[Rfam]
Nucleotides: 104
Base pairs, nucleotide, nucleotide: 009096010095011094013092014091018087019086023082024081025080026079029077030076031075032074033073034070035069036068
Number, partner (000 for none) and nucleotide at each position: 001000c002000u003000c004000u005000a006000g007000c008000c009096c010095g011094g012000a013092u014091a015000a016000u017000a018087g019086u020000g021000g022000a023082a024081a025080u026079c027000c028000u029077u030076u031075u032074u033073u034070g035069u036068u037000a038000g039000u040000a041000u042000a043000a044000a045000a046000a047000c048000c049000c050000a051000u052000c053000g054000a055000c056000u057000g058000c059000g060000a061000u062000c063000a064000g065000g066000g067000u068036g069035a070034c071000a072000c073033a074032a075031a076030a077029a078000a079026g080025a081024u082023u083000g084000c085000a086019a087018c088000g089000g090000a091014u092013a093000g094011c095010c096009g097000g098000a099000u100000u101000a102000g103000c104000u
The record is a 104-nucleotide RNA, which matches "Flavo-1 RNA" in Rfam.
The family has 201 seed sequences and 7,497 matches in Rfam 15.1.